[Rfam]
RNA sequence: CUAUGAUAAAGGCAAAACAGCCGAAAGGCUGUGACGCAAAGCUUAAGGGCCUACGUCCAUCAGGAUAGGGCAGCCAGUUACCGGG
Numbered sequence: 001c002u003a004u005g006a007u008a009a010a011g012g013c014a015a016a017a018c019a020g021c022c023g024a025a026a027g028g029c030u031g032u033g034a035c036g037c038a039a040a041g042c043u044u045a046a047g048g049g050c051c052u053a054c055g056u057c058c059a060u061c062a063g064g065a066u067a068g069g070g071c072a073g074c075c076a077g078u079u080a081c082c083g084g085g
Stems, first nucleotide, its partner, number of pairs: 012037002017032006040079004047075002049071003056065003
This 85-nucleotide RNA from Eubacterium aggregans belongs to the Rfam family "c-di-GMP-I riboswitch aptamer". The family has 155 seed sequences and 5,092 matches in Rfam 15.1. A search with the family's covariance model found it, with a score of 77 bits. Taxonomically the source falls in Eubacterium (Bacteria, Bacillati, Clostridia, Eubacteriales).